The family of this 70-nucleotide sequence from Sus scrofa is "Small nucleolar RNA SNORD82". Rfam links the family to the GO terms RNA processing and nucleolus. From the family's description: snoRNA U82 or Z25 is found in both humans and mice.
[Rfam]
RNA sequence: AGCACACGUGAUGAACAACACAGGGACUUAAUACUGAAACCUGAUGUGACACUGCAAUGUGCUGAUGUGC
Number, nucleotide and partner (000 for none) at each position: 001a000002g070003c069004a068005c067006a066007c000008g000009u000010g000011a000012u000013g000014a000015a000016c000017a000018a000019c000020a000021c000022a000023g000024g000025g000026a000027c000028u000029u000030a000031a000032u000033a000034c000035u000036g000037a000038a000039a000040c000041c000042u000043g000044a000045u000046g000047u000048g000049a000050c000051a000052c000053u000054g000055c000056a000057a000058u000059g000060u000061g000062c000063u000064g000065a000066u006067g005068u004069g003070c002

The match comes from Rfam's covariance-model search (91 bits). The organism belongs to Sus, within Eukaryota.